[Rfam]
RNA: U7 small nuclear RNA
Organism: Pongo abelii
RNA sequence: AAGCGUUGGCAGCUCUUUUAGAAUUUGUCUAGCAGGUUUUCUGAUUUUCACUAGAGGUCCCCC
Numbered sequence: 001a002a003g004c005g006u007u008g009g010c011a012g013c014u015c016u017u018u019u020a021g022a023a024u025u026u027g028u029c030u031a032g033c034a035g036g037u038u039u040u041c042u043g044a045u046u047u048u049c050a051c052u053a054g055a056g057g058u059c060c061c062c063c
Stems, first nucleotide, its partner, number of pairs: 035060002038057006045050001